Annotation: glmS glucosamine-6-phosphate activated ribozyme aptamer: a 168-nucleotide RNA from Oscillibacter hominis. Lineage of the source: Bacteria > Bacillati > Bacillota > Oscillospiraceae > Oscillibacter. It is annotated as a riboswitch. A reference for the family is Jansen et al. (2006), "Backbone and nucleobase contacts to glucosamine-6-phosphate in the glmS ribozyme", Nat Struct Mol Biol.

RNA sequence: GUCCCAUCAUAAGCGCCAUGUGCCUGUCCUGUGAAGUUAGAGGCAGGAUAACGAGGAAAAGAGUGAAUCGAGGAUUCGGCGGAUGCUCUUUCGUACCGUCCACGGGUGCGUUACGCAGCUUGUAAAUAUGCGGGCGACCGCAAAACAGAGAGGCUGCGGCCGUGAGGA
Numbered sequence: 001g002u003c004c005c006a007u008c009a010u011a012a013g014c015g016c017c018a019u020g021u022g023c024c025u026g027u028c029c030u031g032u033g034a035a036g037u038u039a040g041a042g043g044c045a046g047g048a049u050a051a052c053g054a055g056g057a058a059a060a061g062a063g064u065g066a067a068u069c070g071a072g073g074a075u076u077c078g079g080c081g082g083a084u085g086c087u088c089u090u091u092c093g094u095a096c097c098g099u100c101c102a103c104g105g106g107u108g109c110g111u112u113a114c115g116c117a118g119c120u121u122g123u124a125a126a127u128a129u130g131c132g133g134g135c136g137a138c139c140g141c142a143a144a145a146c147a148g149a150g151a152g153g154c155u156g157c158g159g160c161c162g163u164g165a166g167g168a
Stems, first nucleotide, its partner, number of pairs: 020049002023047006030040001058091005068079004092110006114158007129142005

The family's consensus secondary structure is taken from published work.